A member of the RNA family "23S methyl RNA motif" from Paucilactobacillus vaccinostercus, 100 nucleotides long. The family's consensus secondary structure is taken from published work. A reference for the family is Weinberg et al. (2007), "Identification of 22 candidate structured RNAs in bacteria using the CMfinder comparative genomics pipeline", Nucleic Acids Res. NCBI's taxonomy places the organism under Bacteria, Bacilli, Lactobacillales, Lactobacillaceae, Paucilactobacillus vaccinostercus.

RNA sequence: UCGUUUGGUAAUUGACAUCGAUUAGUCGUUGGUAAUUACCAAGGAGUACUUCAUUAAAGCAGCGUUUCGCCGUGCCCACACCGAGACCCUGCUUUUUUAU
Dot-bracket structure: .(.(((((((((((.((.((......)).)).))))))))))))...........(((((((.((((((..(((....))))))))).))))))).....